[Rfam]
RNA sequence: UUACACACAAGGGAGUGCCUUUGGCUGAGAUCGCAUCUGCGAAAUCCUCAUUACCUGAUCUCGUUAGGACGAGCGUAGGGAUUGUGACAGACAUCUAA
Numbered sequence: 001u002u003a004c005a006c007a008c009a010a011g012g013g014a015g016u017g018c019c020u021u022u023g024g025c026u027g028a029g030a031u032c033g034c035a036u037c038u039g040c041g042a043a044a045u046c047c048u049c050a051u052u053a054c055c056u057g058a059u060c061u062c063g064u065u066a067g068g069a070c071g072a073g074c075g076u077a078g079g080g081a082u083u084g085u086g087a088c089a090g091a092c093a094u095c096u097a098a
Stems, first nucleotide, its partner, number of pairs: 006086005011048004016042001017025003032041003054079004060073004
The family of this 98-nucleotide RNA sequence from Streptococcus hillyeri is "TPP riboswitch aptamer (THI element)". From the family's description: Vitamin B(1) in its active form thiamin pyrophosphate (TPP) is an essential coenzyme that is synthesised by coupling of pyrimidine and thiazole moieties in bacteria. Pairs were carried over by alignment from the consensus structure, which is taken from published work.